Shown here is a 77-nucleotide RNA from Crocodylus porosus, a member of the family "Mammalian CPEB3 ribozyme". The organism belongs to Crocodylus, within Eukaryota. The family's consensus secondary structure is taken from published work. The match comes from Rfam's covariance-model search (44 bits). Gene Ontology term of the family: RNA nuclease activity.

RNA sequence: AGUGCCAAGCUCAAGGCCACAGCAGGAGCACUCACCACGUGGCUCUGUCAGAUUCCAACAAGUCUGCAAGUUCUGCU
Dot-bracket structure: .............[.[[[..(((((((((.........))]]]]....((((((......))))))....)))))))
Numbered sequence: 001a002g003u004g005c006c007a008a009g010c011u012c013a014a015g016g017c018c019a020c021a022g023c024a025g026g027a028g029c030a031c032u033c034a035c036c037a038c039g040u041g042g043c044u045c046u047g048u049c050a051g052a053u054u055c056c057a058a059c060a061a062g063u064c065u066g067c068a069a070g071u072u073c074u075g076c077u
Stems, first nucleotide, its partner, number of pairs: 014044001016043003021077007028040002049066006